[Rfam]
RNA sequence: UUGAAGAAUUUGAAGACUUCAACUUGCAUACUUUAAGGAUUUGAAUACUUCAACUUGCAUACUUAGAGGAUUCGAAUACAGCAACU
Numbered sequence: 001u002u003g004a005a006g007a008a009u010u011u012g013a014a015g016a017c018u019u020c021a022a023c024u025u026g027c028a029u030a031c032u033u034u035a036a037g038g039a040u041u042u043g044a045a046u047a048c049u050u051c052a053a054c055u056u057g058c059a060u061a062c063u064u065a066g067a068g069g070a071u072u073c074g075a076a077u078a079c080a081g082c083a084a085c086u
Base pairs, nucleotide, nucleotide: 001084002083003082006079009076010075011074012073013072014071017068018067019066021064025059026058027057028056032053033052035050036049037048
Notes
Shown here is an 86-nucleotide RNA sequence from Solanum tuberosum, a member of the family "MIR8024 microRNA precursor family".